[Rfam]
The family of this 136-nucleotide RNA sequence from Acanthaster planci is "Small nucleolar RNA SNORA57". The family has 26 seed sequences and 1,736 matches in Rfam 15.1. About the family: U99 belongs to the H/ACA class of snoRNAs which are thought to guide the sites of modification of uridines to pseudouridines, the target for this family is unknown. NCBI's taxonomy places the organism under Eukaryota, Metazoa, Deuterostomia, Valvatida, Acanthaster.
RNA sequence: CCUUCUAUCUUGGCAUCUCUGUAUUGAUCAGUACACAGUGGAUGUAUGAACGAAGGUAGAUCAAGGAAUGCUGACAAGCCUUCGGUGCUGGGGUUUGCAAGGUACCCCACUGCCAUCCUCUAACAGCAUUACAAAA
Dot-bracket structure: (((((........((((((.((.(........).)).).))))).......)))))............(((((...............((((((.........))))))..............)))))........
Numbered sequence: 001c002c003u004u005c006u007a008u009c010u011u012g013g014c015a016u017c018u019c020u021g022u023a024u025u026g027a028u029c030a031g032u033a034c035a036c037a038g039u040g041g042a043u044g045u046a047u048g049a050a051c052g053a054a055g056g057u058a059g060a061u062c063a064a065g066g067a068a069u070g071c072u073g074a075c076a077a078g079c080c081u082u083c084g085g086u087g088c089u090g091g092g093g094u095u096u097g098c099a100a101g102g103u104a105c106c107c108c109a110c111u112g113c114c115a116u117c118c119u120c121u122a123a124c125a126g127c128a129u130u131a132c133a134a135a136a
Stems, first nucleotide, its partner, number of pairs: 001056005014044005019038001021036002024033001069128005089109006